[Rfam]
RNA sequence: GGCCACCUUCGGGGGGCUUUAACAUAGCGGACCCGCAGGCAAGCGCCGAGGGGUCCGUGUGCUAGACGGAAGACAGAAA
Number, nucleotide and partner (000 for none) at each position: 001g018002g017003c016004c015005a000006c014007c013008u012009u000010c000011g000012g008013g007014g006015g004016g003017c002018u001019u000020u000021a000022a000023c000024a000025u000026a000027g058028c057029g056030g055031a054032c053033c052034c000035g000036c000037a000038g000039g000040c000041a000042a000043g000044c000045g000046c000047c000048g000049a000050g000051g000052g033053g032054u031055c030056c029057g028058u027059g000060u000061g000062c000063u000064a000065g000066a000067c000068g000069g000070a000071a000072g000073a000074c000075a000076g000077a000078a000079a000
The record is a 79-nucleotide RNA sequence, which matches "L2-Alphaproteobacteria ribosomal protein leader" in Rfam. It is annotated as a cis-regulatory leader. The sequence is in the family's curated seed alignment.